Small Cajal body specific RNA 4: a 124-nucleotide RNA sequence from Cricetulus griseus.
NCBI's taxonomy places the organism under Eukaryota, Opisthokonta, Bilateria, Euteleostomi, Cricetulus.
Its family is annotated with nucleolus, Cajal body and RNA processing in the Gene Ontology.
It is annotated as a small Cajal body RNA.
The base pairs follow the family's consensus structure, which was predicted with RNAfold.
scaRNAs are a specific class of small nuclear RNAs which localise to the Cajal bodies and guide the modification of RNA polymerase II transcribed spliceosomal RNAs U1, U2, U4, U5 and U12. ACA26 belongs to the H/ACA box class of guide RNAs as it has the predicted hairpin-hinge-hairpin-tail structure, conserved H/ACA-box motifs and is found associated with GAR1.
RNA sequence: ACUGGAGGAUCAAGGCUGAAUCUGAUGAAGCAAGACUUUGCUGAUACACUCCUCCUAGACAAAGGGUGGAGAGAACAGUCGUAAACUGGAGAAAACCACAGGUUGAAUAUACUAUCCAAAAUUU
Numbered sequence: 001a002c003u004g005g006a007g008g009a010u011c012a013a014g015g016c017u018g019a020a021u022c023u024g025a026u027g028a029a030g031c032a033a034g035a036c037u038u039u040g041c042u043g044a045u046a047c048a049c050u051c052c053u054c055c056u057a058g059a060c061a062a063a064g065g066g067u068g069g070a071g072a073g074a075a076c077a078g079u080c081g082u083a084a085a086c087u088g089g090a091g092a093a094a095a096c097c098a099c100a101g102g103u104u105g106a107a108u109a110u111a112c113u114a115u116c117c118a119a120a121a122u123u124u
Stems, first nucleotide, its partner, number of pairs: 002058002004055006014042003018038002021035003064117004074108001076105005082100001087098003